[Rfam]
RNA sequence: GGCGUAUUUUGCCCAGGCGGAGCUCGACCGCCCACUGAAACGAUGAUCGGGUUCAUCGAUGAUCAUCGGGCCGAGUAUGGGGUCGAGCCGAUCUGCCGGGUUCUGCCGAUCGCCCCC
Numbered sequence: 001g002g003c004g005u006a007u008u009u010u011g012c013c014c015a016g017g018c019g020g021a022g023c024u025c026g027a028c029c030g031c032c033c034a035c036u037g038a039a040a041c042g043a044u045g046a047u048c049g050g051g052u053u054c055a056u057c058g059a060u061g062a063u064c065a066u067c068g069g070g071c072c073g074a075g076u077a078u079g080g081g082g083u084c085g086a087g088c089c090g091a092u093c094u095g096c097c098g099g100g101u102u103c104u105g106c107c108g109a110u111c112g113c114c115c116c117c
Stems, first nucleotide, its partner, number of pairs: 016032005079116004089112002092109002095106002098103001
RNA: ALIL pseudoknot